[Rfam]
RNA sequence: CCCGCAGAAAGACGGAAAGACCCCGUGCACCUUUACUACAGUUUGACAGUGACAUUCGAAUAAGCUUGUGUAGGAUAGGUGGGAGACUUUGAAGCUGGGACGCUAGUCUCGGUGGAGUCAUCCUUGAAAUACCACCCUGGUUUGUUUGGAUGUCUAACCCAGGUCCGUCAUCCGGAUCGGGGACACUGUCUGAUGGGUAGUUUGACUGGGGCGGUCGCCUCCCAAAGAGUAACGGAGGCGCGCGAAGGUUCCCUCAGGCUGAUUGGAAACCAGCCGUAGAGUGUAAAGGCAUAAGGGAGCUUGACUGCGAGACCAACAAGUCGAGCAGGUACGAAAGUAGGUCUUAGUGAUCCGGCGGUUCUGUAUGGAAGGGCCGUCGCUCAACGGAUAAAAGGUACGCCGGGGAUAACAGGCUGAUCUCCCCCAAGAGUUCACAUCGACGGGGAGGUUUGGCACCUCGAUGUCGGCUCAUCGCAUCCUGGGGCUGAAGUAGGUCCCAAGGGUUUGGCUGUUCGCCAAUUAAAGCGGUACGCGAGCUGGGUUUAAAACGUCGUGAGACAGUUUGGUCCCUAUCUUCUGUGGGCGUA
Numbered sequence: 001c002c003c004g005c006a007g008a009a010a011g012a013c014g015g016a017a018a019g020a021c022c023c024c025g026u027g028c029a030c031c032u033u034u035a036c037u038a039c040a041g042u043u044u045g046a047c048a049g050u051g052a053c054a055u056u057c058g059a060a061u062a063a064g065c066u067u068g069u070g071u072a073g074g075a076u077a078g079g080u081g082g083g084a085g086a087c088u089u090u091g092a093a094g095c096u097g098g099g100a101c102g103c104u105a106g107u108c109u110c111g112g113u114g115g116a117g118u119c120a121u122c123c124u125u126g127a128a129a130u131a132c133c134a135c136c137c138u139g140g141u142u143u144g145u146u147u148g149g150a151u152g153u154c155u156a157a158c159c160c161a162g163g164u165c166c167g168u169c170a171u172c173c174g175g176a177u178c179g180g181g182g183a184c185a186c187u188g189u190c191u192g193a194u195g196g197g198u199a200g201u202u203u204g205a206c207u208g209g210g211g212c213g214g215u216c217g218c219c220u221c222c223c224a225a226a227g228a229g230u231a232a233c234g235g236a237g238g239c240g241c242g243c244g245a246a247g248g249u250u251c252c253c254u255c256a257g258g259c260u261g262a263u264u265g266g267a268a269a270c271c272a273g274c275c276g277u278a279g280a281g282u283g284u285a286a287a288g289g290c291a292u293a294a295g296g297g298a299g300c301u302u303g304a305c306u307g308c309g310a311g312a313c314c315a316a317c318a319a320g321u322c323g324a325g326c327a328g329g330u331a332c333g334a335a336a337g338u339a340g341g342u343c344u345u346a347g348u349g350a351u352c353c354g355g356c357g358g359u360u361c362u363g364u365a366u367g368g369a370a371g372g373g374c375c376g377u378c379g380c381u382c383a384a385c386g387g388a389u390a391a392a393a394g395g396u397a398c399g400c401c402g403g404g405g406a407u408a409a410c411a412g413g414c415u416g417a418u419c420u421c422c423c424c425c426a427a428g429a430g431u432u433c434a435c436a437u438c439g440a441c442g443g444g445g446a447g448g449u450u451u452g453g454c455a456c457c458u459c460g461a462u463g464u465c466g467g468c469u470c471a472u473c474g475c476a477u478c479c480u481g482g483g484g485c486u487g488a489a490g491u492a493g494g495u496c497c498c499a500a501g502g503g504u505u506u507g508g509c510u511g512u513u514c515g516c517c518a519a520u521u522a523a524a525g526c527g528g529u530a531c532g533c534g535a536g537c538u539g540g541g542u543u544u545a546a547a548a549c550g551u552c553g554u555g556a557g558a559c560a561g562u563u564u565g566g567u568c569c570c571u572a573u574c575u576u577c578u579g580u581g582g583g584c585g586u587a
Stems, first nucleotide, its partner, number of pairs: 001583008010575003014570002022404004027400002029396005035201004042193002045190004051154016068137001078136005085119003094113008158181003162178006204216004217239006240385001242342002248300006254280002257275005281290002305328004311322003330339003353379007361372002413454003417451001418448007428438002465540001466538004470532001471529005478503002481498006505519005546564004550559003

About this RNA:
Shown here is a 587-nucleotide part of an RNA from Citrifermentans bemidjiense, a member of the family "Bacterial large subunit ribosomal RNA". Pairs were carried over by alignment from the consensus structure, which is taken from published work.